[Rfam]
RNA sequence: CGGCUUGAAUUCCGCUGCGUGUCCGACUAUCUGAUGUGUGUUCGCUUCGGCGGACUAUGGCAAUAAACGCGCUCGUAAUACGCGGAUCGGACCCGGGGGCGGUACCCGGCGACUCCACCAAACAUCCGUAUUGGCGGAUCAUGGGGUCGAAAUAGGAUCGACGGACGUCUAAAGGGGUAAUGCUUUUGCUCGGUGAGUUACCACCGUUAUCGGUACAAGAUGUACAGUUGCCAAUAACAACAGUGCUCCGGUCGCCGUCGCAGCGUAAGCUGCGUCGAGAUCGAAACUUAAGUCCUUGCGCCUAGCAGUGUAAGGCGGGGUUCGCAGGCACCUGGCAACAGAAGCCUGCACU
Numbered sequence: 001c002g003g004c005u006u007g008a009a010u011u012c013c014g015c016u017g018c019g020u021g022u023c024c025g026a027c028u029a030u031c032u033g034a035u036g037u038g039u040g041u042u043c044g045c046u047u048c049g050g051c052g053g054a055c056u057a058u059g060g061c062a063a064u065a066a067a068c069g070c071g072c073u074c075g076u077a078a079u080a081c082g083c084g085g086a087u088c089g090g091a092c093c094c095g096g097g098g099g100c101g102g103u104a105c106c107c108g109g110c111g112a113c114u115c116c117a118c119c120a121a122a123c124a125u126c127c128g129u130a131u132u133g134g135c136g137g138a139u140c141a142u143g144g145g146g147u148c149g150a151a152a153u154a155g156g157a158u159c160g161a162c163g164g165a166c167g168u169c170u171a172a173a174g175g176g177g178u179a180a181u182g183c184u185u186u187u188g189c190u191c192g193g194u195g196a197g198u199u200a201c202c203a204c205c206g207u208u209a210u211c212g213g214u215a216c217a218a219g220a221u222g223u224a225c226a227g228u229u230g231c232c233a234a235u236a237a238c239a240a241c242a243g244u245g246c247u248c249c250g251g252u253c254g255c256c257g258u259c260g261c262a263g264c265g266u267a268a269g270c271u272g273c274g275u276c277g278a279g280a281u282c283g284a285a286a287c288u289u290a291a292g293u294c295c296u297u298g299c300g301c302c303u304a305g306c307a308g309u310g311u312a313a314g315g316c317g318g319g320g321u322u323c324g325c326a327g328g329c330a331c332c333u334g335g336c337a338a339c340a341g342a343a344g345c346c347u348g349c350a351c352u
Stems, first nucleotide, its partner, number of pairs: 040055005059190005069183002071178004083167002087164003093109005110149007191206004197216002200214003318333004324349006
Alphaproteobacteria transfer-messenger RNA: a 352-nucleotide RNA sequence from Jannaschia donghaensis. By type it is a non-coding RNA gene.